RNA sequence: CUAAUAGCUAAGAGUAGGAAAAGUACUUUAAAAGUAGUUUACAGAGAGUGGAGGUUUGGUGUGACUCCAUAGCGAAGUUUAAAGGAAAAUCACCUAGGAGCUGAAGGCUGAAAAUAGUAAGUCUAUCCGUAAUUCUGCGUUAAAGAAUAGAGUAUGUUAGUACUUGAAAUUAUACAUUAACACUAUAGGUGGUAUAGCGAAUUCAACUUCGUCCUAUUU
Number, nucleotide and partner (000 for none) at each position: 001c000002u000003a000004a000005u000006a000007g101008c100009u000010a000011a000012g000013a000014g000015u096016a095017g094018g093019a000020a000021a000022a000023g000024u000025a000026c084027u083028u082029u081030a080031a079032a000033a000034g000035u000036a000037g073038u072039u071040u000041a000042c000043a000044g000045a000046g000047a000048g070049u069050g068051g067052a066053g065054g000055u000056u000057u000058g000059g000060u000061g000062u000063g000064a000065c053066u052067c051068c050069a049070u048071a039072g038073c037074g000075a000076a000077g000078u000079u031080u030081a029082a028083a027084g026085g000086a000087a000088a000089a000090u000091c000092a000093c018094c017095u016096a015097g000098g000099a000100g008101c007102u000103g126104a000105a124106g123107g122108c121109u120110g000111a000112a000113a000114a000115u000116a000117g000118u000119a000120a109121g108122u107123c106124u105125a000126u103127c000128c139129g138130u137131a000132a000133u000134u000135c000136u000137g130138c129139g128140u000141u000142a000143a000144a000145g000146a000147a000148u000149a000150g000151a000152g000153u000154a000155u000156g181157u180158u179159a178160g177161u176162a000163c000164u000165u000166g000167a000168a000169a000170u000171u000172a000173u000174a000175c000176a161177u160178u159179a158180a157181c156182a000183c000184u000185a000186u216187a215188g214189g213190u000191g000192g000193u000194a000195u000196a000197g212198c211199g210200a209201a208202u000203u000204c000205a000206a000207c000208u201209u200210c199211g198212u197213c189214c188215u187216a186217u000218u000219u000
A member of the RNA family "T-box leader" from Clostridium sp. BL8, 219 nucleotides long. Lineage of the source: Bacteria > Bacillati > Bacillota > Clostridia > Clostridium. By type it is a cis-regulatory leader. It scores 130 bits against the family's covariance model. Uncharged tRNA acts as the effector for transcription antitermination of genes in the T-box leader family. T-boxes are found upstream of many aminoacyl-tRNA synthetase genes and some amino acid biosynthetic genes usually in Gram-positive bacteria. The anticodon of a specific tRNA base pairs to a specifier sequence within the T-box motif, and the NCCA acceptor tail of the tRNA base pairs to a conserved bulge in the T-box antiterminator hairpin.